The record is a 355-nucleotide RNA from Coxiella endosymbiont of Amblyomma americanum, which matches "Bacterial RNase P class A" in Rfam. The match comes from Rfam's covariance-model search (318 bits). Ribonuclease P (RNase P) is a ubiquitous endoribonuclease, found in archaea, bacteria and eukarya as well as chloroplasts and mitochondria. It is annotated as a ribozyme. A reference for the family is Beauregard et al. (2013), "Identification and characterization of small RNAs in Yersinia pestis", RNA Biol. The organism belongs to Coxiella, within Bacteria.
RNA sequence: AAAGUCAGCCAAACAGUCGCUCAGUGAGUAAAUCUGAGAGGAAAGUCCGGGCUCCAUAGGACAGAGUGCCAGGUAACUCCUGGGAGGUGCAAACCUACGGAGAGUGCAAUAGAAAGUAUACCGCUGCUUAUUUCAGUAUAGUAAGAAAGCAGUAAGGGUGAAAUGGUGUGGUAAGGGCACACCGCGUAUCUGGUGACAGAAACGGCGAUGGUAAACCCCACUCGGAGCAAAGCUAAAUAGAAACCUUGUGUGGUCCGCACGCUGGUUUGGGUAAGCUGCUUGAGGUGUGUGGUGACACGCACCCUAGAUAGAUGACUGUUCACGACAGAACCCGGCUUAUCGGCUGACUUUUGUC
Number, nucleotide and partner (000 for none) at each position: 001a351002a350003a349004g348005u347006c346007a345008g344009c343010c342011a340012a320013a319014c318015a317016g316017u315018c314019g000020c038021u037022c036023a035024g034025u000026g000027a000028g000029u000030a000031a000032a000033u000034c024035u023036g022037a021038g020039a000040g000041g000042a000043a338044a337045g336046u000047c335048c334049g333050g332051g331052c227053u226054c225055c224056a000057u000058a000059g256060g255061a254062c253063a000064g223065a222066g221067u220068g219069c083070c082071a081072g080073g079074u000075a000076a000077c000078u000079c073080c072081u071082g070083g069084g098085a096086g095087g094088u093089g000090c000091a000092a000093a088094c087095c086096u085097a000098c084099g218100g217101a000102g000103a000104g216105u215106g212107c211108a000109a000110u000111a000112g000113a000114a000115a000116g000117u000118a000119u000120a000121c157122c156123g153124c152125u151126g150127c149128u148129u147130a000131u145132u144133u143134c000135a000136g000137u000138a000139u000140a000141g000142u000143a133144a132145g131146a000147a129148a128149g127150c126151a125152g124153u123154a000155a000156g122157g121158g000159u000160g000161a000162a000163a000164u000165g183166g182167u181168g180169u179170g178171g000172u000173a000174a000175g000176g000177g000178c170179a169180c168181a167182c166183c165184g206185c204186g203187u202188a000189u200190c199191u198192g197193g000194u000195g000196a000197c192198a191199g190200a189201a000202a187203c186204g185205g000206c184207g000208a000209u000210g000211g107212u106213a000214a000215a105216c104217c100218c099219c068220a067221c066222u065223c064224g055225g054226a053227g052228c000229a000230a000231a277232g276233c275234u274235a000236a000237a000238u000239a000240g000241a268242a267243a266244c265245c264246u000247u261248g260249u259250g258251u257252g000253g062254u061255c060256c059257g251258c250259a249260c248261g247262c000263u000264g245265g244266u243267u242268u241269g000270g000271g000272u000273a000274a234275g233276c232277u231278g000279c000280u000281u000282g000283a000284g303285g302286u301287g300288u299289g298290u297291g296292g000293u000294g000295a000296c291297a290298c289299g288300c287301a286302c285303c284304c000305u000306a000307g000308a000309u000310a000311g000312a000313u000314g018315a017316c016317u015318g014319u013320u012321c000322a000323c000324g000325a000326c000327a000328g000329a000330a000331c051332c050333c049334g048335g047336c045337u044338u043339a000340u011341c000342g010343g009344c008345u007346g006347a005348c004349u003350u002351u001352u000353g000354u000355c000